[Rfam]
RNA sequence: GGUCAGUGAUGUGAUGUAAAAGGUCUGAUUCGCAGGUCCCCUCCCUGUAGCUCCUGGUUCCCAGCAGCCCCAGCUUUCUCCCAUCAUGCUCUAGUUGUGCACGGAUGGGCUCAGGUGCUCCUGACAGACGGGAUAAUGUCUCAGUCCGUGUCUCCGAGAGACCAAGGAGCCACGGCAACGACACGCAUCCGAUAUAGCCAAUCAGCAAGGAGCGCUCAGGGCCUGGGCAGGGGCUUGUGUGUGUGAUCUCAAGUUUAAGCUGAGACC
Numbered sequence: 001g002g003u004c005a006g007u008g009a010u011g012u013g014a015u016g017u018a019a020a021a022g023g024u025c026u027g028a029u030u031c032g033c034a035g036g037u038c039c040c041c042u043c044c045c046u047g048u049a050g051c052u053c054c055u056g057g058u059u060c061c062c063a064g065c066a067g068c069c070c071c072a073g074c075u076u077u078c079u080c081c082c083a084u085c086a087u088g089c090u091c092u093a094g095u096u097g098u099g100c101a102c103g104g105a106u107g108g109g110c111u112c113a114g115g116u117g118c119u120c121c122u123g124a125c126a127g128a129c130g131g132g133a134u135a136a137u138g139u140c141u142c143a144g145u146c147c148g149u150g151u152c153u154c155c156g157a158g159a160g161a162c163c164a165a166g167g168a169g170c171c172a173c174g175g176c177a178a179c180g181a182c183a184c185g186c187a188u189c190c191g192a193u194a195u196a197g198c199c200a201a202u203c204a205g206c207a208a209g210g211a212g213c214g215c216u217c218a219g220g221g222c223c224u225g226g227g228c229a230g231g232g233g234c235u236u237g238u239g240u241g242u243g244u245g246a247u248c249u250c251a252a253g254u255u256u257a258a259g260c261u262g263a264g265a266c267c
Stems, first nucleotide, its partner, number of pairs: 001267004034249005041225001044221002046218002058212004062123003066119003080109006089099001131190004137185002147174004152169004
Shown here is a 267-nucleotide RNA from Acipenser ruthenus, a member of the family "Small Cajal body specific RNA 6".
For this family Rfam cites "Cajal body-specific small nuclear RNAs: a novel class of 2'-O-methylation and pseudouridylation guide RNAs" (Darzacq et al., EMBO J, 2002).
The match comes from Rfam's covariance-model search (109 bits).
Its family is annotated with RNA processing and nucleolus in the Gene Ontology.
Pairs were carried over by alignment from the consensus structure, which is taken from published work.
Rfam classes the family as a small Cajal body RNA.
U88 is small Cajal body specific RNA (scaRNA). scaRNAs are a novel class of small nuclear RNAs which localise to the Cajal bodies. U88 is found associated with both fibrillarin and Gar1p and co-localises with coilin in Cajal bodies.